The family of this 83-nucleotide RNA from Ornithorhynchus anatinus is "Small nucleolar RNA SNORD121A". Taxonomically the source falls in Ornithorhynchus (Eukaryota, Bilateria, Amniota, Mammalia). On this family, see Yang et al., Nucleic Acids Res 2006: "snoSeeker: an advanced computational package for screening of guide and orphan snoRNA genes in the human genome". Rfam classes the family as a C/D-box small nucleolar RNA.
RNA sequence: GUCCAGAAGACAGUGAUGUGGUAUUUUCCAAGCACAUAUCUGAUUGGCAUGUGUGGAAAUCAUUAUUUCUGAGUUUUCUGGAA
Numbered sequence: 001g002u003c004c005a006g007a008a009g010a011c012a013g014u015g016a017u018g019u020g021g022u023a024u025u026u027u028c029c030a031a032g033c034a035c036a037u038a039u040c041u042g043a044u045u046g047g048c049a050u051g052u053g054u055g056g057a058a059a060u061c062a063u064u065a066u067u068u069c070u071g072a073g074u075u076u077u078c079u080g081g082a083a
Stems, first nucleotide, its partner, number of pairs: 002082005008076004